Notes: The family of this 90-nucleotide RNA sequence from Thermoanaerobacteraceae bacterium SP2 is "c-di-GMP-I riboswitch aptamer". A search with the family's covariance model found it, with a score of 81 bits. Lineage of the source: Bacteria > Bacillota > Clostridia > Thermoanaerobacterales > Thermoanaerobacteraceae.

RNA sequence: AAGUGAUAAAGGCAAACUUAUCGAAAGAUAAGGGCGCAAAGCCAUAGGGUCUAAGGUGUUUAGCUGCACUAUGACAGCCUGGCUGCCGCU
Numbered sequence: 001a002a003g004u005g006a007u008a009a010a011g012g013c014a015a016a017c018u019u020a021u022c023g024a025a026a027g028a029u030a031a032g033g034g035c036g037c038a039a040a041g042c043c044a045u046a047g048g049g050u051c052u053a054a055g056g057u058g059u060u061u062a063g064c065u066g067c068a069c070u071a072u073g074a075c076a077g078c079c080u081g082g083c084u085g086c087c088g089c090u
Stems, first nucleotide, its partner, number of pairs: 012037002017032006040084004046080003049075003056069004